[Rfam]
RNA sequence: GGGGGUGCACCGGUUUCGACGGAAUCGAGAAAUCUUGUGUUGCAAGUAGGAGUGAAGGUUCCUUAAACUGACAAAAAAAUAACUGCAAAACGUAAAGAAGAAGAUUCUAACGAAGAACAGUUCGCAAUGGCAGCUUAGUUUGCCUUGCAGGACCCCGGCGGCUCUGUUCCGCGUUGCCGGCCCGUCUUUUACCCAUCGGGACUUGCUUCUUAAAGUUUCUGGUAUUUAGGAAGGACAUUUAAUCAGAAUACGGAGGCGACGCUUGUUAUGCUGCUACCGGCUCCCGACAACCACUUCGCAUAACUAAACUUGUAGAGGCACCUGGUUUACCUUUUCGGACGGGGGUUCAAUUCCCCCCAUCUCCACUA
Numbered sequence: 001g002g003g004g005g006u007g008c009a010c011c012g013g014u015u016u017c018g019a020c021g022g023a024a025u026c027g028a029g030a031a032a033u034c035u036u037g038u039g040u041u042g043c044a045a046g047u048a049g050g051a052g053u054g055a056a057g058g059u060u061c062c063u064u065a066a067a068c069u070g071a072c073a074a075a076a077a078a079a080u081a082a083c084u085g086c087a088a089a090a091c092g093u094a095a096a097g098a099a100g101a102a103g104a105u106u107c108u109a110a111c112g113a114a115g116a117a118c119a120g121u122u123c124g125c126a127a128u129g130g131c132a133g134c135u136u137a138g139u140u141u142g143c144c145u146u147g148c149a150g151g152a153c154c155c156c157g158g159c160g161g162c163u164c165u166g167u168u169c170c171g172c173g174u175u176g177c178c179g180g181c182c183c184g185u186c187u188u189u190u191a192c193c194c195a196u197c198g199g200g201a202c203u204u205g206c207u208u209c210u211u212a213a214a215g216u217u218u219c220u221g222g223u224a225u226u227u228a229g230g231a232a233g234g235a236c237a238u239u240u241a242a243u244c245a246g247a248a249u250a251c252g253g254a255g256g257c258g259a260c261g262c263u264u265g266u267u268a269u270g271c272u273g274c275u276a277c278c279g280g281c282u283c284c285c286g287a288c289a290a291c292c293a294c295u296u297c298g299c300a301u302a303a304c305u306a307a308a309c310u311u312g313u314a315g316a317g318g319c320a321c322c323u324g325g326u327u328u329a330c331c332u333u334u335u336c337g338g339a340c341g342g343g344g345g346u347u348c349a350a351u352u353c354c355c356c357c358c359a360u361c362u363c364c365a366c367u368a
Stems, first nucleotide, its partner, number of pairs: 001364007020337005027330001030328005037321005043312005049061003053073002057069001127146001129144005149188005155180008166202006206233009218248001220246001222244001252284004257279002261274002265304004269298002341357005
The family of this 368-nucleotide sequence from Treponema sp. JC4 is "transfer-messenger RNA". It is annotated as a non-coding RNA gene. The base pairs follow the family's consensus structure, which is taken from published work. Rfam describes the family as follows. Bacterial tmRNA, also known as 10Sa RNA or SsrA, is named for its dual tRNA and mRNA-like properties. The match comes from Rfam's covariance-model search (141 bits). Rfam links the family to the GO term RNA catabolic process.